[Rfam]
RNA sequence: CGGUCAGCAGUUCACCGAGGCGCCGUCACCCUUUUGGGAGCUAAACCUGCUA
Numbered sequence: 001c002g003g004u005c006a007g008c009a010g011u012u013c014a015c016c017g018a019g020g021c022g023c024c025g026u027c028a029c030c031c032u033u034u035u036g037g038g039a040g041c042u043a044a045a046c047c048u049g050c051u052a
Base pairs, nucleotide, nucleotide: 001017002016003015004014029038030037031036
Annotation: This 52-nucleotide RNA sequence from Maridesulfovibrio salexigens belongs to the Rfam family "COG3860 RNA". The family's consensus secondary structure is taken from published work. The organism belongs to Maridesulfovibrio salexigens, within Bacteria. The family's RNA type in Rfam is cis-regulatory element. Rfam's curators put it in the seed alignment.